RNA sequence: GGGCCGAUGAUGAUUCCAAGUCAAUCAUUCCUUCGAAAAGCUGAACAAAAUGAGUGAAAACUCCCUUUCAUCUCUCUCAUCGUGACUGAGGUCC
Numbered sequence: 001g002g003g004c005c006g007a008u009g010a011u012g013a014u015u016c017c018a019a020g021u022c023a024a025u026c027a028u029u030c031c032u033u034c035g036a037a038a039a040g041c042u043g044a045a046c047a048a049a050a051u052g053a054g055u056g057a058a059a060a061c062u063c064c065c066u067u068u069c070a071u072c073u074c075u076c077u078c079a080u081c082g083u084g085a086c087u088g089a090g091g092u093c094c
Stems, first nucleotide, its partner, number of pairs: 001094005026056005032048002
Notes: The family of this 94-nucleotide sequence from Nannospalax galili is "Small nucleolar RNA SNORD116". Its family is annotated with RNA processing and nucleolus in the Gene Ontology. Pairs were carried over by alignment from the consensus structure, which was predicted with PFOLD.